Description:
The family of this 312-nucleotide RNA sequence from Ambispora leptoticha is "Nuclear RNase P". It scores 126 bits against the family's covariance model. The family's RNA type in Rfam is ribozyme. Taxonomically the source falls in Ambispora (Eukaryota, Glomeromycotina, Glomeromycetes, Ambisporaceae). Ribonuclease P (RNase P) is a ubiquitous endoribonuclease, found in archaea, bacteria and eukarya as well as chloroplasts and mitochondria. Its best characterised activity is the generation of mature 5'-ends of tRNAs by cleaving the 5'-leader elements of precursor-tRNAs. Cellular RNase Ps are ribonucleoproteins.
RNA sequence: CGAACGAAAAGCUUGUGUUAAGGGCAAACAUACAUAUGAGCAAGGUUCUUUUUCCUUGUUUCAUAUCAUUAUAUACCCUUGGGAAGGUCUGAGAAAAACCACAGUUCGUCUCUAGCUGGGGACUCUUGCGAGAGUGAGAGGUGAAUCACCAGAAACGAUACCCUCUUAGUCUGGUACUUGAAAUCCUAUUAGGAUGGAUUGCACCUGGGUUAGGAAAUGGUUGAAACGGGUUCACCGGUGGUAGCGCUAUGAAGUGCAAUACGCAAGACAUCACAUUGUGAUGCAACUCAAUUCAGACUACUCUUUCGUUCG
Numbered sequence: 001c002g003a004a005c006g007a008a009a010a011g012c013u014u015g016u017g018u019u020a021a022g023g024g025c026a027a028a029c030a031u032a033c034a035u036a037u038g039a040g041c042a043a044g045g046u047u048c049u050u051u052u053u054c055c056u057u058g059u060u061u062c063a064u065a066u067c068a069u070u071a072u073a074u075a076c077c078c079u080u081g082g083g084a085a086g087g088u089c090u091g092a093g094a095a096a097a098a099c100c101a102c103a104g105u106u107c108g109u110c111u112c113u114a115g116c117u118g119g120g121g122a123c124u125c126u127u128g129c130g131a132g133a134g135u136g137a138g139a140g141g142u143g144a145a146u147c148a149c150c151a152g153a154a155a156c157g158a159u160a161c162c163c164u165c166u167u168a169g170u171c172u173g174g175u176a177c178u179u180g181a182a183a184u185c186c187u188a189u190u191a192g193g194a195u196g197g198a199u200u201g202c203a204c205c206u207g208g209g210u211u212a213g214g215a216a217a218u219g220g221u222u223g224a225a226a227c228g229g230g231u232u233c234a235c236c237g238g239u240g241g242u243a244g245c246g247c248u249a250u251g252a253a254g255u256g257c258a259a260u261a262c263g264c265a266a267g268a269c270a271u272c273a274c275a276u277u278g279u280g281a282u283g284c285a286a287c288u289c290a291a292u293u294c295a296g297a298c299u300a301c302u303c304u305u306u307c308g309u310u311c312g
Base pairs, nucleotide, nucleotide: 001312002311003310004309007306008305009304012267013266014265015264016263017262018261020080021079022078023077024076034066035065036064037063038062039060040059041058042057043056044055045054089296090295091294092293093292098242099241100240101239109121110120111119112118125138126137127136128135129134141235142234143233144232145231146230147229161220162219269283270282271281272280273279274278